This 61-nucleotide sequence from Cerebratulus lacteus belongs to the Rfam family "mir-1994 microRNA precursor family". Rfam's curators put it in the seed alignment. The base pairs follow the family's consensus structure, which was predicted with RNAalifold. The organism belongs to Cerebratulus, within Eukaryota. Gene Ontology terms of the family: RISC complex and miRNA-mediated post-transcriptional gene silencing.
RNA sequence: CUUCGGUUGGACAUGCUUGUCUACAUGUGAUUUUAAUCAUGAGACAGUGUGUCCUCCCUCG
Numbered sequence: 001c002u003u004c005g006g007u008u009g010g011a012c013a014u015g016c017u018u019g020u021c022u023a024c025a026u027g028u029g030a031u032u033u034u035a036a037u038c039a040u041g042a043g044a045c046a047g048u049g050u051g052u053c054c055u056c057c058c059u060c061g
Base pairs, nucleotide, nucleotide: 002061005057006056009053010052012051013050014049016047017046019045020044021043022042025040026039027038